[Rfam]
RNA sequence: CACUCUGGAGAGACCGGUUGGAUCCGGCGCCGAAGGUGCAUUGGGUGGGCAUGGCCCGCCCUGAACUCUCAGGCAAAAGGACAGAGGG
Numbered sequence: 001c002a003c004u005c006u007g008g009a010g011a012g013a014c015c016g017g018u019u020g021g022a023u024c025c026g027g028c029g030c031c032g033a034a035g036g037u038g039c040a041u042u043g044g045g046u047g048g049g050c051a052u053g054g055c056c057c058g059c060c061c062u063g064a065a066c067u068c069u070c071a072g073g074c075a076a077a078a079g080g081a082c083a084g085a086g087g088g
Stems, first nucleotide, its partner, number of pairs: 001088001003086005014027004029074003032070002036068001038066001043060001
This 88-nucleotide RNA from Luteimonas sp. MC1825 belongs to the Rfam family "Glycine riboswitch aptamer". Gene Ontology term of the family: glycine biosynthetic process. Taxonomically the source falls in Luteimonas (Bacteria, Pseudomonadati, Gammaproteobacteria, Lysobacterales). The match comes from Rfam's covariance-model search (50 bits). The base pairs follow the family's consensus structure.